RNA sequence: UUUAAGAAUGGUGAUGACGUUCGCCUAAAAUAUUAGUAGUUACUGACUAUUAAUUGAUGACGUCUACUGACUA
Numbered sequence: 001u002u003u004a005a006g007a008a009u010g011g012u013g014a015u016g017a018c019g020u021u022c023g024c025c026u027a028a029a030a031u032a033u034u035a036g037u038a039g040u041u042a043c044u045g046a047c048u049a050u051u052a053a054u055u056g057a058u059g060a061c062g063u064c065u066a067c068u069g070a071c072u073a
Stems, first nucleotide, its partner, number of pairs: 010025004016064006032054010
RNA: Fluoride riboswitch aptamer (crcB RNA motif)